[Rfam]
RNA sequence: CCCGCUAAAGGGCAAACCCGUCGAAAGGCGGGGGCGCAAAGCCACGGGCCUAAAUCCCGAAGGAUAAGGCAGCCGGGUUGCCGGG
Numbered sequence: 001c002c003c004g005c006u007a008a009a010g011g012g013c014a015a016a017c018c019c020g021u022c023g024a025a026a027g028g029c030g031g032g033g034g035c036g037c038a039a040a041g042c043c044a045c046g047g048g049c050c051u052a053a054a055u056c057c058c059g060a061a062g063g064a065u066a067a068g069g070c071a072g073c074c075g076g077g078u079u080g081c082c083g084g085g
Stems, first nucleotide, its partner, number of pairs: 012037002017032006040079004045075003048070003055064003
Dot-bracket structure: ...........((...((((((....))))))...))..((((.((((((....(((....)))...)))..)))))))......